[Rfam]
RNA sequence: CCGCACUGAUGAUACCUAUGAACUCUCUCUUACUGAGCUUCCAGUGGAGACAAGACUUUAUAAUCUGAGUGGC
Numbered sequence: 001c002c003g004c005a006c007u008g009a010u011g012a013u014a015c016c017u018a019u020g021a022a023c024u025c026u027c028u029c030u031u032a033c034u035g036a037g038c039u040u041c042c043a044g045u046g047g048a049g050a051c052a053a054g055a056c057u058u059u060a061u062a063a064u065c066u067g068a069g070u071g072g073c
Stems, first nucleotide, its partner, number of pairs: 001072004
RNA: Small nucleolar RNA SNORD26